[Rfam]
RNA: mir-9242 microRNA precursor family
Organism: Myotis brandtii
RNA sequence: GACCUCCCUCUGUGGGAUGAUUGAUCGCGGGGCCCCCAGAUUGAUCGUCCUGCAGAGGGAGGCC
Number, nucleotide and partner (000 for none) at each position: 001g064002a000003c062004c061005u060006c059007c058008c057009u056010c055011u054012g053013u052014g051015g050016g049017a048018u047019g046020a045021u044022u043023g042024a041025u040026c039027g000028c000029g036030g035031g000032g000033c000034c000035c030036c029037c000038a000039g026040a025041u024042u023043g022044a021045u020046c019047g018048u017049c016050c015051u014052g013053c012054a011055g010056a009057g008058g007059g006060a005061g004062g003063c000064c001